[Rfam]
RNA: Burkholderia RNA 14
RNA sequence: GUGGGCGUGGUCACGGUCAAGUUGCAGUCCGUGCCCGUGAUGAACGAGCUGCCCGGCCGCCUGGAAGCCUUCCGCACCGCGCAGGUCCGUGCCCGCGUGGCCGGCAUCCUGCAGCGCCGUCUGUUCACCGAAGGCGCCGACGUGAAGGCGGGCCAGGCCCUCUUCCAGAUCGA
Numbered sequence: 001g002u003g004g005g006c007g008u009g010g011u012c013a014c015g016g017u018c019a020a021g022u023u024g025c026a027g028u029c030c031g032u033g034c035c036c037g038u039g040a041u042g043a044a045c046g047a048g049c050u051g052c053c054c055g056g057c058c059g060c061c062u063g064g065a066a067g068c069c070u071u072c073c074g075c076a077c078c079g080c081g082c083a084g085g086u087c088c089g090u091g092c093c094c095g096c097g098u099g100g101c102c103g104g105c106a107u108c109c110u111g112c113a114g115c116g117c118c119g120u121c122u123g124u125u126c127a128c129c130g131a132a133g134g135c136g137c138c139g140a141c142g143u144g145a146a147g148g149c150g151g152g153c154c155a156g157g158c159c160c161u162c163u164u165c166c167a168g169a170u171c172g173a
Stems, first nucleotide, its partner, number of pairs: 003054005008047001010045001011043003016038001018037001021034002023031002056149003059143002063141001067137002070134001072133001075130001079092004095120001097118001100115001102114001104112003160168002